[Rfam]
RNA sequence: AGUGUCCUGGUGCUUACCACAGGCUGUGUUCUUACAUGGACCGUACAGAAAGAGAAAGCAGAGUAAACCCACCAAAUACACCUCAGCCCAGGCCCUUUGCCUGGUCUGUACUGGGAAUGGGGGUACACGG
Dot-bracket structure: .((.(.((...........(.(...((((....))))...).).........)).).))............((..(.......(((.((((((.....)))))).))).........)..))........
RNA: Small nucleolar RNA SNORA51
Organism: Leptonychotes weddellii